[Rfam]
RNA sequence: UGCCUCGUUAUUCAGCAGAUAGGCACAACUCACUGUGUGUCUGAAUUGAAGAACGUGGCUAGAGAACCAACAGGUUGUGCUUUCCUCACUGCAUCAUUAGUUGCAGUGGUGACAAUGAGGCCUGUAACAGAU
Numbered sequence: 001u002g003c004c005u006c007g008u009u010a011u012u013c014a015g016c017a018g019a020u021a022g023g024c025a026c027a028a029c030u031c032a033c034u035g036u037g038u039g040u041c042u043g044a045a046u047u048g049a050a051g052a053a054c055g056u057g058g059c060u061a062g063a064g065a066a067c068c069a070a071c072a073g074g075u076u077g078u079g080c081u082u083u084c085c086u087c088a089c090u091g092c093a094u095c096a097u098u099a100g101u102u103g104c105a106g107u108g109g110u111g112a113c114a115a116u117g118a119g120g121c122c123u124g125u126a127a128c129a130g131a132u
Stems, first nucleotide, its partner, number of pairs: 002059003006055003021042007070125005084111001086109004
RNA: Small nucleolar RNA SNORA1